Rfam assigns this 356-nucleotide part of an RNA from Halococcoides cellulosivorans to the family "Archaeal large subunit ribosomal RNA". Lineage of the source: Archaea > Methanobacteriati > Methanobacteriota > Halobacteriales > Halococcoides.

[Rfam]
RNA sequence: CGUAGUAGCAGCGAAAGUCGGGUUGAAAUCCUGACGGCCGAAAGGGCAAGGGUUCCUCGGCACUGUUCGACAGCCGAGGGUUAGCCGGUCCUAAGAUCCGCCGUAAUUCGAACGGAUCAAAUGGGAAACUGGUUAAUAUUCCAGUGCCACCAUACAUUCAACGUCGACGCCUUGGGGUAGACUGAGCCGGGCACUCGCCCGGUCGAACCGUCGAAAUCCGUGGAAGCCGUAAUGGCACGAAGCGGACGAAUGGCGGGAUAGCGCAAGUCAGUCCAACCUAGGGCCCGUGAAAAGACAGUAUGGUGUCCGUACCGAGAACCGACACAGGUGCCCAGGCGGAGUAAGCCAAGGCCUGU
Numbered sequence: 001c002g003u004a005g006u007a008g009c010a011g012c013g014a015a016a017g018u019c020g021g022g023u024u025g026a027a028a029u030c031c032u033g034a035c036g037g038c039c040g041a042a043a044g045g046g047c048a049a050g051g052g053u054u055c056c057u058c059g060g061c062a063c064u065g066u067u068c069g070a071c072a073g074c075c076g077a078g079g080g081u082u083a084g085c086c087g088g089u090c091c092u093a094a095g096a097u098c099c100g101c102c103g104u105a106a107u108u109c110g111a112a113c114g115g116a117u118c119a120a121a122u123g124g125g126a127a128a129c130u131g132g133u134u135a136a137u138a139u140u141c142c143a144g145u146g147c148c149a150c151c152a153u154a155c156a157u158u159c160a161a162c163g164u165c166g167a168c169g170c171c172u173u174g175g176g177g178u179a180g181a182c183u184g185a186g187c188c189g190g191g192c193a194c195u196c197g198c199c200c201g202g203u204c205g206a207a208c209c210g211u212c213g214a215a216a217u218c219c220g221u222g223g224a225a226g227c228c229g230u231a232a233u234g235g236c237a238c239g240a241a242g243c244g245g246a247c248g249a250a251u252g253g254c255g256g257g258a259u260a261g262c263g264c265a266a267g268u269c270a271g272u273c274c275a276a277c278c279u280a281g282g283g284c285c286c287g288u289g290a291a292a293a294g295a296c297a298g299u300a301u302g303g304u305g306u307c308c309g310u311a312c313c314g315a316g317a318a319c320c321g322a323c324a325c326a327g328g329u330g331c332c333c334a335g336g337c338g339g340a341g342u343a344a345g346c347c348a349a350g351g352c353c354u355g356u
Stems, first nucleotide, its partner, number of pairs: 017035006036353004044333004050313002055079006064072002086309003090124002095118006102110002128145005148305008163296003169284008180273005186203005208256004217246005226236003262267001319328002335347003
Background
It scores 2839 bits against the family's covariance model. Gene Ontology terms of the family: structural constituent of ribosome and ribosome.